SAM riboswitch aptamer (S box leader): a 102-nucleotide RNA from Proteiniborus sp. DW1.
Pairs were carried over by alignment from the consensus structure, which is taken from published work.
It scores 94 bits against the family's covariance model.
About the family: The SAM riboswitch is found upstream of a number of genes which code for proteins involved in methionine or cysteine biosynthesis in Gram-positive bacteria.

RNA sequence: UUCUUAUCAAGAGAGGUUGAGGGACUGGCCCAAUGAAACCCAGCAACAGCCAGUAUACUGGAAAUGUGCUAAUUCCUGCAGCUAUAAGCUGAGAGAUAAGAA
Numbered sequence: 001u002u003c004u005u006a007u008c009a010a011g012a013g014a015g016g017u018u019g020a021g022g023g024a025c026u027g028g029c030c031c032a033a034u035g036a037a038a039c040c041c042a043g044c045a046a047c048a049g050c051c052a053g054u055a056u057a058c059u060g061g062a063a064a065u066g067u068g069c070u071a072a073u074u075c076c077u078g079c080a081g082c083u084a085u086a087a088g089c090u091g092a093g094a095g096a097u098a099a100g101a102a
Stems, first nucleotide, its partner, number of pairs: 001102008013041001015040003021031003025078001027076002042070004047066002050061003074094001079091005